[Rfam]
RNA sequence: UGUUUACAGGGGAAUGAGGUUCUCCCUUAGUGUCAUACUAAAACCGCUUAUUUAAGCUGAUGACUUCUGUGUGAUU
Numbered sequence: 001u002g003u004u005u006a007c008a009g010g011g012g013a014a015u016g017a018g019g020u021u022c023u024c025c026c027u028u029a030g031u032g033u034c035a036u037a038c039u040a041a042a043a044c045c046g047c048u049u050a051u052u053u054a055a056g057c058u059g060a061u062g063a064c065u066u067c068u069g070u071g072u073g074a075u076u
Stems, first nucleotide, its partner, number of pairs: 010025003016067006046057004
Source information:
The record is a 76-nucleotide RNA from Clostridiales bacterium 1_7_47FAA, which matches "Fluoride riboswitch aptamer (crcB RNA motif)" in Rfam. For this family Rfam cites "Widespread genetic switches and toxicity resistance proteins for fluoride" (Baker et al., Science, 2012). NCBI's taxonomy places the organism under Bacteria, Bacillati, Bacillota, Clostridia, Eubacteriales. Its family is annotated with response to fluoride and positive regulation of gene expression in the Gene Ontology.